Nucleotides: 074
Stems, first nucleotide, its partner, number of pairs: 002073005
Number, partner (000 for none) and nucleotide at each position: 001000c002073g003072u004071u005070g006069a007000u008000g009000u010000g011000a012000u013000g014000a015000u016000a017000a018000g019000c020000u021000u022000u023000c024000a025000c026000a027000g028000a029000a030000a031000u032000a033000c034000u035000u036000g037000u038000g039000u040000u041000g042000a043000c044000c045000a046000a047000a048000a049000c050000u051000c052000a053000g054000a055000c056000u057000a058000c059000a060000a061000u062000u063000a064000u065000c066000u067000g068000a069006u070005c071004a072003a073002c074000a